[Rfam]
RNA sequence: GGGUGUCCGGUCUUUGCGGGAGCGGGCAGGGUCUUUUGCGCUGGUCGGGCCGCCAGCG
Numbered sequence: 001g002g003g004u005g006u007c008c009g010g011u012c013u014u015u016g017c018g019g020g021a022g023c024g025g026g027c028a029g030g031g032u033c034u035u036u037u038g039c040g041c042u043g044g045u046c047g048g049g050c051c052g053c054c055a056g057c058g
Base pairs, nucleotide, nucleotide: 005027006026007025008024009023011021012020039058040057041056042055043054044053045052
The family of this 58-nucleotide RNA from Novosphingobium sp. AP12 is "nhaA-I RNA". The sequence is in the family's curated seed alignment. The source organism's lineage runs through Bacteria, Pseudomonadati, Pseudomonadota, Sphingomonadales and Novosphingobium. From the family's description: Acidobacteria, Alphaproteobacteria, Betaproteobacteria and Gammaproteobacteria, Verrucomicrobia, cand. division NC10.